RNA sequence: CUAGUAUGUUUGUGCUUGGCGUCUGAAAAAACUCGGAUAUCGCCAGUGUUCUCAUCAGCUUCAUCUUAUUAUACAAACCGUGAGCCUGGAGUUAAACAAGAACACUACAUUG
Numbered sequence: 001c002u003a004g005u006a007u008g009u010u011u012g013u014g015c016u017u018g019g020c021g022u023c024u025g026a027a028a029a030a031a032c033u034c035g036g037a038u039a040u041c042g043c044c045a046g047u048g049u050u051c052u053c054a055u056c057a058g059c060u061u062c063a064u065c066u067u068a069u070u071a072u073a074c075a076a077a078c079c080g081u082g083a084g085c086c087u088g089g090a091g092u093u094a095a096a097c098a099a100g101a102a103c104a105c106u107a108c109a110u111u112g
Base pairs, nucleotide, nucleotide: 045106046105047104048103049102050101051100057093058092059091060090061089062088065084066083067082
Dot-bracket structure: ............................................(((((((.....((((((..(((..............)))...))))))......)))))))......